[Rfam]
RNA sequence: UUGGAUGAAAUUAAUGUAGGACCUACAUUUUGAAAAUGAAACUCACAUAAAGUGGUGGGAUAUACAUUAAUUUCACUAA
Dot-bracket structure: ((((.(((((((((((((....((((((((((...............))))))).)))....)))))))))))))))))
Rfam assigns this 79-nucleotide RNA from Medicago truncatula to the family "MIR5269 microRNA precursor family". The source organism's lineage runs through Eukaryota, Tracheophyta, Euphyllophyta, Mesangiospermae and Medicago.